A member of the RNA family "c-di-AMP riboswitch aptamer (ydaO/yuaA leader)" from Caldanaerobacter subterraneus, 128 nucleotides long. Gene Ontology terms of the family: cyclic-di-AMP binding and regulation of gene expression. A search with the family's covariance model found it, with a score of 89 bits.
RNA sequence: AGUUAAAACAUGCCGAAUCCCCGAUAAGGGGUACGGGGGAUGUAAAUUUGGGGUGAAUCCACGUAUUGUGGUAGGGUGGCCCUCACCCGAACCCGUCAACUAACCUCGGAGGCAAAGGGGGUAAAUCA
Numbered sequence: 001a002g003u004u005a006a007a008a009c010a011u012g013c014c015g016a017a018u019c020c021c022c023g024a025u026a027a028g029g030g031g032u033a034c035g036g037g038g039g040a041u042g043u044a045a046a047u048u049u050g051g052g053g054u055g056a057a058u059c060c061a062c063g064u065a066u067u068g069u070g071g072u073a074g075g076g077u078g079g080c081c082c083u084c085a086c087c088c089g090a091a092c093c094c095g096u097c098a099a100c101u102a103a104c105c106u107c108g109g110a111g112g113c114a115a116a117g118g119g120g121g122u123a124a125a126u127c128a
Stems, first nucleotide, its partner, number of pairs: 011114004019031004034108005043050002051094003059071004074088004